[Rfam]
RNA sequence: UCGAGUACAAUAAAGAACUAAAAUAGCUAGACAACAAAACUAGGAACCACUUCCUUCGCUGGCCCAAUCUCCCUUGGGCUGGCAUUUUC
Numbered sequence: 001u002c003g004a005g006u007a008c009a010a011u012a013a014a015g016a017a018c019u020a021a022a023a024u025a026g027c028u029a030g031a032c033a034a035c036a037a038a039a040c041u042a043g044g045a046a047c048c049a050c051u052u053c054c055u056u057c058g059c060u061g062g063c064c065c066a067a068u069c070u071c072c073c074u075u076g077g078g079c080u081g082g083c084a085u086u087u088u089c
Stems, first nucleotide, its partner, number of pairs: 042055004058083010
A member of the RNA family "CyaR/Rye RNA" from Yersinia ruckeri, 89 nucleotides long. The base pairs follow the family's consensus structure, which was predicted with PFOLD. Lineage of the source: Bacteria > Pseudomonadati > Pseudomonadota > Gammaproteobacteria > Yersinia. This sRNA was originally identified in a large scale screen of E. coli. It was shown to bind Hfq and called RyeE. This sRNA has since been characterised as a post-transcriptional regulator of the 18 kDa OmpX porin in Salmonella. Phylogenetic and mutational analyses suggest that a conserved RNA hairpin of this sRNA which features a C-rich apical loop, acts to sequester the Shine-Dalgarno sequence of ompX mRNA and inhibits translational initiation.